The family of this 82-nucleotide RNA sequence from Perca fluviatilis is "tRNA".
[Rfam]
RNA sequence: GACAAGGUGGCCGAGUGGUUAAGGUGAUGGACUGCUAAUCCAUUGUGCUUUGCACGCGUGGGUUCGAAUCCCAUCCUCGUUG
Numbered sequence: 001g002a003c004a005a006g007g008u009g010g011c012c013g014a015g016u017g018g019u020u021a022a023g024g025u026g027a028u029g030g031a032c033u034g035c036u037a038a039u040c041c042a043u044u045g046u047g048c049u050u051u052g053c054a055c056g057c058g059u060g061g062g063u064u065c066g067a068a069u070c071c072c073a074u075c076c077u078c079g080u081u082g
Base pairs, nucleotide, nucleotide: 001081002080003079005077006076007075010025011024012023027043028042029041030040031039058074059073060072061071062070
Pairs were carried over by alignment from the consensus structure, which is taken from published work. From the family's description: Transfer RNA (tRNA) molecules are approximately 80 nucleotides in length. Their secondary structure includes four short double-helical elements and three loops (D, anti-codon, and T loops). Further hydrogen bonds mediate the characteristic L-shaped molecular structure. tRNAs have two regions of fundamental functional importance: the anti-codon, which is responsible for specific mRNA codon recognition, and the 3' end, to which the tRNAs corresponding amino acid is attached (by aminoacyl-tRNA synthetases). tRNAs cope with the degeneracy of the genetic code in two manners: having more than one tRNA (with a specific anti-codon) for a particular amino acid; and 'wobble' base-pairing, i.e. permitting non-standard base-pairing at the 3rd anti-codon position.